[Rfam]
RNA sequence: AGACUACAGAAUCUCUGUAGGCUAUUGUGAGAUUGUGAAAAUACUUCACAGUUGCCUGCAGAGAUUAUCUAGUCU
Numbered sequence: 001a002g003a004c005u006a007c008a009g010a011a012u013c014u015c016u017g018u019a020g021g022c023u024a025u026u027g028u029g030a031g032a033u034u035g036u037g038a039a040a041a042u043a044c045u046u047c048a049c050a051g052u053u054g055c056c057u058g059c060a061g062a063g064a065u066u067a068u069c070u071a072g073u074c075u
Base pairs, nucleotide, nucleotide: 003073004072005071006070010066011065012064013063014062015061016060017059020057021056024052026050027049028048029047030046031045
RNA: mir-216 microRNA precursor family
Organism: Scyliorhinus torazame